[Rfam]
RNA sequence: UAUCUGGAUAGAGGUGCGGUGUUUCAUUAGUAACCGAUGAGAUGAUUUCCGACAAAAUCGUUUGCAUCAUCGUCGAAAGGGUUUACCGCCGAAGGAAGUUUAGUACGGAAUAAGCUUACCUGGUUACUGAGCUGAAAAAGCCUGUAACUGUCAUCAUUGCAAGAUGAUGAAGAGCUAUCGACUCG
Numbered sequence: 001u002a003u004c005u006g007g008a009u010a011g012a013g014g015u016g017c018g019g020u021g022u023u024u025c026a027u028u029a030g031u032a033a034c035c036g037a038u039g040a041g042a043u044g045a046u047u048u049c050c051g052a053c054a055a056a057a058u059c060g061u062u063u064g065c066a067u068c069a070u071c072g073u074c075g076a077a078a079g080g081g082u083u084u085a086c087c088g089c090c091g092a093a094g095g096a097a098g099u100u101u102a103g104u105a106c107g108g109a110a111u112a113a114g115c116u117u118a119c120c121u122g123g124u125u126a127c128u129g130a131g132c133u134g135a136a137a138a139a140g141c142c143u144g145u146a147a148c149u150g151u152c153a154u155c156a157u158u159g160c161a162a163g164a165u166g167a168u169g170a171a172g173a174g175c176u177a178u179c180g181a182c183u184c185g
Stems, first nucleotide, its partner, number of pairs: 007179005016089006024081001035072006093121003096117007122149006131141003151170007

Lysine riboswitch aptamer: a 185-nucleotide RNA sequence from Hydrogenoanaerobacterium saccharovorans. The source organism's lineage runs through Bacteria, Bacillati, Clostridia, Oscillospiraceae and Hydrogenoanaerobacterium. It scores 86 bits against the family's covariance model.